[Rfam]
RNA sequence: UGGAAGUGAUGAAACAGAGAUAAUUGGAUGUCUCUUUGAAUGCAGUGUGUGUGAUAAAUGGAAUUUAAACCAAGUUAAAGUGGGGGUGGGGGUGGGGAGUGCAUGUGUGCGCGCAUGCGUAGAAAGGGCUUUAAAUGGGGGCACUGAUAAUGCAGUGCUGAUUCCGGAGUGCAUCUGAGGCAUGUUGUUAAGUUCUAGGGUGCCACUUUACAACAUUGCCAAUGAUUAAAGCCCAAAACAAGCCCACCAAGACAAGCCUAGGCAUCCUGAAUCUCUAACAGGUUCAUUAAUGAUAGUGAUCCUGUGAUCUGAUCCGA
Dot-bracket structure: ((((..................................................................................................................................................................................((((((.(.((.(....).))....).)))))).................................................................................................)))).
Numbered sequence: 001u002g003g004a005a006g007u008g009a010u011g012a013a014a015c016a017g018a019g020a021u022a023a024u025u026g027g028a029u030g031u032c033u034c035u036u037u038g039a040a041u042g043c044a045g046u047g048u049g050u051g052u053g054a055u056a057a058a059u060g061g062a063a064u065u066u067a068a069a070c071c072a073a074g075u076u077a078a079a080g081u082g083g084g085g086g087u088g089g090g091g092g093u094g095g096g097g098a099g100u101g102c103a104u105g106u107g108u109g110c111g112c113g114c115a116u117g118c119g120u121a122g123a124a125a126g127g128g129c130u131u132u133a134a135a136u137g138g139g140g141g142c143a144c145u146g147a148u149a150a151u152g153c154a155g156u157g158c159u160g161a162u163u164c165c166g167g168a169g170u171g172c173a174u175c176u177g178a179g180g181c182a183u184g185u186u187g188u189u190a191a192g193u194u195c196u197a198g199g200g201u202g203c204c205a206c207u208u209u210a211c212a213a214c215a216u217u218g219c220c221a222a223u224g225a226u227u228a229a230a231g232c233c234c235a236a237a238a239c240a241a242g243c244c245c246a247c248c249a250a251g252a253c254a255a256g257c258c259u260a261g262g263c264a265u266c267c268u269g270a271a272u273c274u275c276u277a278a279c280a281g282g283u284u285c286a287u288u289a290a291u292g293a294u295a296g297u298g299a300u301c302c303u304g305u306g307a308u309c310u311g312a313u314c315c316g317a
Stems, first nucleotide, its partner, number of pairs: 001316004183215006190208001192203002195200001